[Rfam]
RNA sequence: AAUUGUGGUGGUUUCUUUCUGGCUCAUUUGUUAAGUUUUCAAAUAGGCCUGAUUCUGCCACAUACAUUAUAUAGGAGCUGGCACUGACUUAAAAACAGAGAGAUCUUUCUUAAGUUUUUCCUGCGUCAGAGAUUGGCUCCCACAAGU
Numbered sequence: 001a002a003u004u005g006u007g008g009u010g011g012u013u014u015c016u017u018u019c020u021g022g023c024u025c026a027u028u029u030g031u032u033a034a035g036u037u038u039u040c041a042a043a044u045a046g047g048c049c050u051g052a053u054u055c056u057g058c059c060a061c062a063u064a065c066a067u068u069a070u071a072u073a074g075g076a077g078c079u080g081g082c083a084c085u086g087a088c089u090u091a092a093a094a095a096c097a098g099a100g101a102g103a104u105c106u107u108u109c110u111u112a113a114g115u116u117u118u119u120c121c122u123g124c125g126u127c128a129g130a131g132a133u134u135g136g137c138u139c140c141c142a143c144a145a146g147u
Stems, first nucleotide, its partner, number of pairs: 005061007021049003026044005074140006080089002106132005

Rfam assigns this 147-nucleotide sequence from Ictidomys tridecemlineatus to the family "Small nucleolar RNA SNORA12". It is annotated as an H/ACA-box small nucleolar RNA. Rfam's curators write: U108 belongs to the H/ACA family of snoRNAs. The sequence is predicted to guide the pseudouridylation of the U372 residue in the 28S rRNA subunit. The match comes from Rfam's covariance-model search (144 bits).